[Rfam]
Notes: Rfam assigns this 71-nucleotide RNA from Rotaria socialis to the family "mir-2 microRNA precursor family". Taxonomically the source falls in Rotaria (Eukaryota, Metazoa, Eumetazoa, Protostomia). Its family is annotated with miRNA-mediated post-transcriptional gene silencing and RISC complex in the Gene Ontology.

Nucleotides: 071
Base pairs, nucleotide, nucleotide: 005065006064007063008062009061010060011059013057014056015055017053018052019051020050021049022048025047026046027045
Number, partner (000 for none) and nucleotide at each position: 001000u002000c003000a004000a005065u006064c007063a008062g009061u010060a011059a012000a013057c014056a015055g016000u017053c018052u019051g020050u021049g022048a023000a024000a025047u026046g027045u028000u029000g030000a031000a032000a033000u034000a035000a036000a037000c038000u039000g040000a041000a042000g043000u044000c045027a046026u047025a048022u049021c050020a051019c052018a053017g054000c055015c056014u057013g058000c059011u060010u061009g062008c063007u064006g065005a066000u067000c068000u069000u070000a071000a